The family of this 267-nucleotide sequence from Paenibacillus beijingensis is "Bacterial large signal recognition particle RNA". Pairs were carried over by alignment from the consensus structure, which is taken from published work.
RNA sequence: CCGUGCUAGAUGGGGAGGUAGCGGUGCCCUGUAACUCGCAAUCCGCUGCAGCGAGGUUGAACUCCUGCCUUAGGUCGUGCCGAUGUGAAGUCUGGCAGCUGUGAAAGGUGUUGACGGACGGGUCCUCCGCAAUGGAUGCCUGUGAACCCGGUCAGGUCCGGAAGGAAGCAGCCGUAAGCAGGUUAAUUCAUGUGCCGGAGGAGUGCCUGGCCCGAGCUGGGAUCAGAGGUGCCGUUCGGAUCGCAUAGAUCAACGGCAGGUGCACGG
Numbered sequence: 001c002c003g004u005g006c007u008a009g010a011u012g013g014g015g016a017g018g019u020a021g022c023g024g025u026g027c028c029c030u031g032u033a034a035c036u037c038g039c040a041a042u043c044c045g046c047u048g049c050a051g052c053g054a055g056g057u058u059g060a061a062c063u064c065c066u067g068c069c070u071u072a073g074g075u076c077g078u079g080c081c082g083a084u085g086u087g088a089a090g091u092c093u094g095g096c097a098g099c100u101g102u103g104a105a106a107g108g109u110g111u112u113g114a115c116g117g118a119c120g121g122g123u124c125c126u127c128c129g130c131a132a133u134g135g136a137u138g139c140c141u142g143u144g145a146a147c148c149c150g151g152u153c154a155g156g157u158c159c160g161g162a163a164g165g166a167a168g169c170a171g172c173c174g175u176a177a178g179c180a181g182g183u184u185a186a187u188u189c190a191u192g193u194g195c196c197g198g199a200g201g202a203g204u205g206c207c208u209g210g211c212c213c214g215a216g217c218u219g220g221g222a223u224c225a226g227a228g229g230u231g232c233c234g235u236u237c238g239g240a241u242c243g244c245a246u247a248g249a250u251c252a253a254c255g256g257c258a259g260g261u262g263c264a265c266g267g
Stems, first nucleotide, its partner, number of pairs: 001267006009058003012030004017025001019023001035055005064260006073251004081243004086238004093231002099228002102225003107218003116212002119209005124201006130192002133190005138183006149174004157166003

The source organism's lineage runs through Bacteria, Bacillota, Caryophanales, Paenibacillaceae and Paenibacillus.
The family's RNA type in Rfam is non-coding RNA gene.
Rfam links the family to the GO terms SRP-dependent cotranslational protein targeting to membrane, signal sequence recognition and signal recognition particle, plasma membrane targeting.